[Rfam]
Rfam assigns this 96-nucleotide RNA from Canis lupus to the family "mir-8834 microRNA precursor family".
RNA sequence: AGGAGGAACAGCCCAUGGGCGGGCAGCUCUGGACCUGGAUUCAGCUCCGCAGGCACUCCGACUCUCGUCUGCAGGGCCUGGAGGCUCCGGGCGGGG
Numbered sequence: 001a002g003g004a005g006g007a008a009c010a011g012c013c014c015a016u017g018g019g020c021g022g023g024c025a026g027c028u029c030u031g032g033a034c035c036u037g038g039a040u041u042c043a044g045c046u047c048c049g050c051a052g053g054c055a056c057u058c059c060g061a062c063u064c065u066c067g068u069c070u071g072c073a074g075g076g077c078c079u080g081g082a083g084g085c086u087c088c089g090g091g092c093g094g095g096g
Stems, first nucleotide, its partner, number of pairs: 002088004009080003012076003018069006025063002030060004034053004

About this RNA:
Lineage of the source: Eukaryota > Euteleostomi > Sarcopterygii > Dipnotetrapodomorpha > Canis lupus. The base pairs follow the family's consensus structure, which was predicted with RNAalifold.